[Rfam]
RNA: Eukaryotic large subunit ribosomal RNA, nucleotides 1863 to 2349
Organism: Zymoseptoria ardabiliae
RNA sequence: UAGAAUAAUAUAGAUAAGGGAAGUCGGUAAAAUAGAUCCGUAACUUCGGGAAAAGGAUUAGCUCUAAGGGUUAGGCGCGUUAGGCCUUAGGUAGAUUCCCGGGGAGUAGGUCGGUACUAGCCUUACGGCCGGCGCCUUCUAGCACCCCGUAGCGGACGCCCUUAGUAGGCUUCGGCCGUCCGGCGCGCGCUUAAUAACUAACUUAGAACUAGUACGGAUAAGGGGAAUCUAACUAUCUAAUUAAAACAUAGUAUUACGAUAGUUAGAAAGUAAUAUUAACGUAAUAUAAUUUCUACCUAGUACUCUAAAUAUUAAAGUAAAGAAAUUUAAUUAAGCGCGGGUAAACGGUAGGAGUAACUAUAACUCUCUUAAGGUAGCUAAAUGCCUCGUUAUCUAAUUAGUAACGCGUAUAAAUAGAUUAACGAGAUUCCUACUAUCCCUAUCUACUAUCUAGCGAAACUAUAGCUAAGGGAACGGGCUUAGUAGA
Numbered sequence: 001u002a003g004a005a006u007a008a009u010a011u012a013g014a015u016a017a018g019g020g021a022a023g024u025c026g027g028u029a030a031a032a033u034a035g036a037u038c039c040g041u042a043a044c045u046u047c048g049g050g051a052a053a054a055g056g057a058u059u060a061g062c063u064c065u066a067a068g069g070g071u072u073a074g075g076c077g078c079g080u081u082a083g084g085c086c087u088u089a090g091g092u093a094g095a096u097u098c099c100c101g102g103g104g105a106g107u108a109g110g111u112c113g114g115u116a117c118u119a120g121c122c123u124u125a126c127g128g129c130c131g132g133c134g135c136c137u138u139c140u141a142g143c144a145c146c147c148c149g150u151a152g153c154g155g156a157c158g159c160c161c162u163u164a165g166u167a168g169g170c171u172u173c174g175g176c177c178g179u180c181c182g183g184c185g186c187g188c189g190c191u192u193a194a195u196a197a198c199u200a201a202c203u204u205a206g207a208a209c210u211a212g213u214a215c216g217g218a219u220a221a222g223g224g225g226a227a228u229c230u231a232a233c234u235a236u237c238u239a240a241u242u243a244a245a246a247c248a249u250a251g252u253a254u255u256a257c258g259a260u261a262g263u264u265a266g267a268a269a270g271u272a273a274u275a276u277u278a279a280c281g282u283a284a285u286a287u288a289a290u291u292u293c294u295a296c297c298u299a300g301u302a303c304u305c306u307a308a309a310u311a312u313u314a315a316a317g318u319a320a321a322g323a324a325a326u327u328u329a330a331u332u333a334a335g336c337g338c339g340g341g342u343a344a345a346c347g348g349u350a351g352g353a354g355u356a357a358c359u360a361u362a363a364c365u366c367u368c369u370u371a372a373g374g375u376a377g378c379u380a381a382a383u384g385c386c387u388c389g390u391u392a393u394c395u396a397a398u399u400a401g402u403a404a405c406g407c408g409u410a411u412a413a414a415u416a417g418a419u420u421a422a423c424g425a426g427a428u429u430c431c432u433a434c435u436a437u438c439c440c441u442a443u444c445u446a447c448u449a450u451c452u453a454g455c456g457a458a459a460c461u462a463u464a465g466c467u468a469a470g471g472g473a474a475c476g477g478g479c480u481u482a483g484u485a486g487a
Base pairs, nucleotide, nucleotide: 001453002452003451004450011446012445013444014443015442016441018439019438020437035059036058037057038056039055044049060210061209063207064206065205066204067203068202069199070198071197072196073195075188076187077186078185079184080183081182083180084159085158088155090153100149101148102147103146104145106143107142109140110139113136114135115134117132118131120129121128122127223432224431225430226429227428228427229426230424234248236246251287252286253285254284255283256282257281258280262274263273264272265271291418292417295349296348297347300346301345302342303341304340305339310337312335318329319328320327321326351367352366353365354364355363369373389405390404391403392402393401466483467482468481469480470479